[Rfam]
RNA sequence: GCCUUCCUUGUCUGGGGGAGCUGAGUGUUCAAUGAUCUGCUAGUGAGACCACUCCUGCUGACACCCAUUCAAUUUAACUGAUCGCACCCGCGCCAAAGCUGCGAGUGCAAUUUUUGGAAAG
Numbered sequence: 001g002c003c004u005u006c007c008u009u010g011u012c013u014g015g016g017g018g019a020g021c022u023g024a025g026u027g028u029u030c031a032a033u034g035a036u037c038u039g040c041u042a043g044u045g046a047g048a049c050c051a052c053u054c055c056u057g058c059u060g061a062c063a064c065c066c067a068u069u070c071a072a073u074u075u076a077a078c079u080g081a082u083c084g085c086a087c088c089c090g091c092g093c094c095a096a097a098g099c100u101g102c103g104a105g106u107g108c109a110a111u112u113u114u115u116g117g118a119a120a121g
Base pairs, nucleotide, nucleotide: 005019006018007017008016009015020058021057023055024053025052026051027050029048030047037043084108085107086106087105089103090102091101092099093098
Dot-bracket structure: ....(((((.....)))))((.(((((.((......(.....)...)).)))).).)).........................((((.(((((....)).))).)))).............